This 123-nucleotide sequence from Rhodococcoides fascians belongs to the Rfam family "SAM (S-adenosyl methionine) riboswitch aptamer". SAM-IV is a mRNA element that regulates gene expression via direct sensing of S-adenosylmethionine (SAM or AdoMet). SAM-IV riboswitches share conserved nucleotide positions with the previously described SAM-I riboswitches sequence analysis and molecular recognition experiments suggest that SAM-I and SAM-IV riboswitches share similar ligand binding sites, but have different scaffolds. Rfam 15.1 lists 2,360 matches to the family in 1,305 species.
[Rfam]
RNA sequence: GGUCAUGAGUGCCAGCAUCGAGCCCCGGCUUGCUGGCCGGCAACCCUCCAACCGCGGUGGGGUGCCCCGGGUGAACGACCAGGCCGAUGCAACACAUCCGUGUCGUAUCGACAAGCGCGGGUC
Numbered sequence: 001g002g003u004c005a006u007g008a009g010u011g012c013c014a015g016c017a018u019c020g021a022g023c024c025c026c027g028g029c030u031u032g033c034u035g036g037c038c039g040g041c042a043a044c045c046c047u048c049c050a051a052c053c054g055c056g057g058u059g060g061g062g063u064g065c066c067c068c069g070g071g072u073g074a075a076c077g078a079c080c081a082g083g084c085c086g087a088u089g090c091a092a093c094a095c096a097u098c099c100g101u102g103u104c105g106u107a108u109c110g111a112c113a114a115g116c117g118c119g120g121g122u123c
Stems, first nucleotide, its partner, number of pairs: 001080004009038001011037006021030002039066003044062003048057002083112001085110006092103004